[Rfam]
RNA sequence: CACUGUCAGAAGUUCAAGGUUCAACGAACCUUGUUCCAGCACGGAUGAUAAGGGGUCUAAUUCCAUGCCGAUGAAGGCAAAAAACUUUAUUGCUGGUAAGUUAGUUAGUAGUUAAAACGAAGGGUAGCACGACCAG
Numbered sequence: 001c002a003c004u005g006u007c008a009g010a011a012g013u014u015c016a017a018g019g020u021u022c023a024a025c026g027a028a029c030c031u032u033g034u035u036c037c038a039g040c041a042c043g044g045a046u047g048a049u050a051a052g053g054g055g056u057c058u059a060a061u062u063c064c065a066u067g068c069c070g071a072u073g074a075a076g077g078c079a080a081a082a083a084a085c086u087u088u089a090u091u092g093c094u095g096g097u098a099a100g101u102u103a104g105u106u107a108g109u110a111g112u113u114a115a116a117a118c119g120a121a122g123g124g125u126a127g128c129a130c131g132a133c134c135a136g
Stems, first nucleotide, its partner, number of pairs: 001043001005042002012036001015033007067078003093136005100128004105123001111118002
RNA: RT-14 RNA
Organism: Alkalihalobacillus alcalophilus